About this RNA
This 84-nucleotide RNA sequence from Geotrypetes seraphini belongs to the Rfam family "mir-130 microRNA precursor family". It scores 53 bits against the family's covariance model. Gene Ontology terms of the family: RISC complex and miRNA-mediated post-transcriptional gene silencing. The source organism's lineage runs through Eukaryota, Bilateria, Craniata, Dermophiidae and Geotrypetes.
[Rfam]
RNA sequence: AUCUGUCCAGUGCCCUUUUUAUGUUGUACUACUAGUGACCAAAUGCACAAAGCAGUGCAAUGUUAAAAGGGCAUUGGCCAGUGU
Numbered sequence: 001a002u003c004u005g006u007c008c009a010g011u012g013c014c015c016u017u018u019u020u021a022u023g024u025u026g027u028a029c030u031a032c033u034a035g036u037g038a039c040c041a042a043a044u045g046c047a048c049a050a051a052g053c054a055g056u057g058c059a060a061u062g063u064u065a066a067a068a069g070g071g072c073a074u075u076g077g078c079c080a081g082u083g084u
Stems, first nucleotide, its partner, number of pairs: 001084002005079001007077004012072008022062009
Pairs were carried over by alignment from the consensus structure, which was predicted with PFOLD. For this family Rfam cites "Identification of tissue-specific microRNAs from mouse" (Lagos-Quintana et al., Curr Biol, 2002).